U1 spliceosomal RNA: a 164-nucleotide sequence from Castor canadensis. For this family Rfam cites "Mechanism of 5' splice site transfer for human spliceosome activation" (Charenton et al., Science, 2019). The family's RNA type in Rfam is spliceosomal small nuclear RNA. The organism belongs to Castor, within Eukaryota. Rfam links the family to the GO terms pre-mRNA 5'-splice site binding, mRNA 5'-splice site recognition and U1 snRNP. A search with the family's covariance model found it, with a score of 132 bits.
RNA sequence: AUACUUACCUGGCAGGGGAGAUACCAAGAUCACAAAGGUGGUUUCCCCAGGCUGAGGCUCAUCUAUUGCACUCCAGAUGUGUUGACCCCUGUGAUUUCCUCAAAUGUGGGAAACUGGACUGCAAAAUUUGUGGUAGUGGGGGACUGUGUUCAUGCUUUCCCCUG
Numbered sequence: 001a002u003a004c005u006u007a008c009c010u011g012g013c014a015g016g017g018g019a020g021a022u023a024c025c026a027a028g029a030u031c032a033c034a035a036a037g038g039u040g041g042u043u044u045c046c047c048c049a050g051g052c053u054g055a056g057g058c059u060c061a062u063c064u065a066u067u068g069c070a071c072u073c074c075a076g077a078u079g080u081g082u083u084g085a086c087c088c089c090u091g092u093g094a095u096u097u098c099c100u101c102a103a104a105u106g107u108g109g110g111a112a113a114c115u116g117g118a119c120u121g122c123a124a125a126a127u128u129u130g131u132g133g134u135a136g137u138g139g140g141g142g143a144c145u146g147u148g149u150u151c152a153u154g155c156u157u158u159c160c161c162c163u164g
Base pairs, nucleotide, nucleotide: 012122013121014120015119016048017047018046020044021043023042024041025040026039049090050089051088054086056083057082058081060079061078062077063076064075092117094115095113096112097111099109100108138163139162140161141160142159143158146155147154148153